Record summary
The family of this 106-nucleotide sequence from Flavonifractor sp. An135 is "TPP riboswitch aptamer (THI element)". Its family is annotated with thiamine pyrophosphate binding in the Gene Ontology. About the family: Vitamin B(1) in its active form thiamin pyrophosphate (TPP) is an essential coenzyme that is synthesised by coupling of pyrimidine and thiazole moieties in bacteria. The previously detected thiamin-regulatory element, thi box was extended, resulting in a new, highly conserved RNA secondary structure, the THI element, which is widely distributed in eubacteria and also occurs in some archaea. Analysis of operon structures identified a large number of new candidate thiamin-regulated genes, mostly transporters, in various prokaryotic organisms. The THI element is a riboswitch that directly binds to TPP to regulate gene expression through a variety of mechanisms in archaea, bacteria and eukaryotes. through a variety of mechanisms in archaea, bacteria and eukaryotes. Tandem TPP riboswitches have been reported where both TPP riboswitches respond independently to TPP. The structure of TPP riboswitch has been reported for Escherichia coli and Arabidopsis thaliana. The organism belongs to Flavonifractor, within Bacteria. The base pairs follow the family's consensus structure, which is taken from published work.

RNA sequence: CGCAAGUGCAAGGGAGCUUUCGCUGAGAAGGCUGAGAGGAGGGUUUUGCCCCUCGACCUGACCUGAUUUGGGUAAUGCCAACGUAGGGAUGCACCGCCGCAGAAGC
Dot-bracket structure: .....((((((((..(((((.......)))))......(((((......)))))..)))..((((..((((......))))..))))..)))))............